Overview:
Shown here is a 96-nucleotide RNA sequence from Sinorhizobium alkalisoli, a member of the family "Repression of heat shock gene expression (ROSE) element". This family represents a 5' UTR cis-regulatory element found in heat shock mRNAs and is known as the ROSE (repression of heat shock gene expression) element. The ROSE element is a negative regulator of heat shock gene expression. The secondary structure is thought to be regulated by temperature. This regulation blocks access to the ribosome binding site under normal conditions.
RNA sequence: GGAGUUGCCUGUUAAAGGGACUCGACUGUCGAGGAGCGCCAGCCUCUUCGGCGCUUCUCGUGUCCAUGUUGCUCAAGGAGGAUAUGGCUAUGAGGA
Numbered sequence: 001g002g003a004g005u006u007g008c009c010u011g012u013u014a015a016a017g018g019g020a021c022u023c024g025a026c027u028g029u030c031g032a033g034g035a036g037c038g039c040c041a042g043c044c045u046c047u048u049c050g051g052c053g054c055u056u057c058u059c060g061u062g063u064c065c066a067u068g069u070u071g072c073u074c075a076a077g078g079a080g081g082a083u084a085u086g087g088c089u090a091u092g093a094g095g096a
Base pairs, nucleotide, nucleotide: 002023003022004021005020006019008018009017033056035055036054037053038052039051040050042048057094058093059092060091061090062089064087065086066085067084068083069082070081072080073079074078
It scores 56 bits against the family's covariance model. By type it is an RNA thermoregulator. The source organism's lineage runs through Bacteria, Pseudomonadati, Pseudomonadota, Rhizobiaceae and Sinorhizobium.